The family of this 59-nucleotide sequence from Neorhizobium lilium is "terC RNA". Lineage of the source: Bacteria > Pseudomonadati > Pseudomonadota > Rhizobiaceae > Neorhizobium.
[Rfam]
RNA sequence: CGCCAGGACCGGGCCCCUCUGGCAGCUCAUUUUAUGAGCUGCGAUGUCGGACUGGAUUU
Numbered sequence: 001c002g003c004c005a006g007g008a009c010c011g012g013g014c015c016c017c018u019c020u021g022g023c024a025g026c027u028c029a030u031u032u033u034a035u036g037a038g039c040u041g042c043g044a045u046g047u048c049g050g051a052c053u054g055g056a057u058u059u
Stems, first nucleotide, its partner, number of pairs: 006053002009050004022042008

Rfam 15.1 lists 1,112 matches to the family in 772 species. The base pairs follow the family's consensus structure, which is taken from published work.